[Rfam]
Rfam assigns this 77-nucleotide sequence from Jilunia laotingensis to the family "Bacteroidetes FopS (family of paralogous sRNAs)".
The base pairs follow the family's consensus structure, which is taken from published work.
A reference for the family is Ruttiger et al. (2025), "The global RNA-binding protein RbpB is a regulator of polysaccharide utilization in Bacteroides thetaiotaomicron", Nat Commun.
Rfam 15.1 lists 822 matches to the family in 178 species.
Its family is annotated with sRNA-mediated gene silencing in the Gene Ontology.
Rfam's curators write: The RNA-binding protein RbpB and BTncRNA_FopS sRNA are involved in the post-transcription regulation of polysaccharide utilisation loci (PUL). FopS sRNAs function as post-transcriptional repressors by binding to the vicinity of the start codon of the first mRNA of target PUL polycistrons, typically corresponding to the cognate SusC homolog, impeding translation of the respective glycan transporter.
By type it is a small RNA.
Taxonomically the source falls in Jilunia (Bacteria, Bacteroidota, Bacteroidia, Bacteroidales).

RNA sequence: GUGUUUUUUUCAUAAGUAUUAGAUUUAAGGUUAACAAAGAUUGGCUGCUCGUGACGAGUAGCCAUUUUUGCUUUAUA
Numbered sequence: 001g002u003g004u005u006u007u008u009u010u011c012a013u014a015a016g017u018a019u020u021a022g023a024u025u026u027a028a029g030g031u032u033a034a035c036a037a038a039g040a041u042u043g044g045c046u047g048c049u050c051g052u053g054a055c056g057a058g059u060a061g062c063c064a065u066u067u068u069u070g071c072u073u074u075a076u077a
Stems, first nucleotide, its partner, number of pairs: 043063007